[Rfam]
RNA sequence: UGCACCUAAAAGCGUUUUCUUGCAAGCCCUUUAAAUGCUCCUGAAAAUCGUAGAUGUGUGCGAUAACAAUCCACACAAUAGCAAGUGAUUUUUGUUCCUCUAACUCAAAUCCAUUUACAUUGUGAACAUAU
Number, nucleotide and partner (000 for none) at each position: 001u062002g061003c060004a059005c058006c056007u000008a000009a000010a000011a000012g051013c050014g049015u047016u046017u045018u044019c043020u000021u000022g038023c037024a000025a036026g000027c000028c000029c000030u000031u000032u000033a000034a000035a000036u025037g023038c022039u000040c000041c000042u000043g019044a018045a017046a016047a015048u000049c014050g013051u012052a000053g000054a000055u000056g006057u000058g005059u004060g003061c002062g001063a000064u000065a000066a000067c000068a000069a000070u000071c000072c000073a000074c124075a123076c122077a121078a120079u119080a000081g000082c000083a116084a115085g114086u113087g112088a110089u109090u108091u107092u000093u000094g104095u103096u102097c000098c000099u000100c000101u000102a096103a095104c094105u000106c000107a091108a090109a089110u088111c000112c087113a086114u085115u084116u083117a000118c000119a079120u078121u077122g076123u075124g074125a000126a000127c000128a000129u000130a000131u000
RNA: Small nucleolar RNA psi28S-3316